Annotation: mir-2188 microRNA precursor family: a 78-nucleotide RNA sequence from Scyliorhinus torazame. The source organism's lineage runs through Eukaryota, Opisthokonta, Vertebrata, Carcharhiniformes and Scyliorhinus. The family has 8 seed sequences and 525 matches in Rfam 15.1.
[Rfam]
RNA sequence: ACUUAUGGGAAAGGUCCAACCUCAUAUGUCCUGUAUUGUUGAAAGUGGGAUGUACGUGGUUAGAUCUAUCCCAGAGGU
Numbered sequence: 001a002c003u004u005a006u007g008g009g010a011a012a013g014g015u016c017c018a019a020c021c022u023c024a025u026a027u028g029u030c031c032u033g034u035a036u037u038g039u040u041g042a043a044a045g046u047g048g049g050a051u052g053u054a055c056g057u058g059g060u061u062a063g064a065u066c067u068a069u070c071c072c073a074g075a076g077g078u
Base pairs, nucleotide, nucleotide: 001078002077004075006073007072008071009070010069012067013066014065015064016063019060020059021058023056025054026053027052028051030049031048032047

It scores 80 bits against the family's covariance model.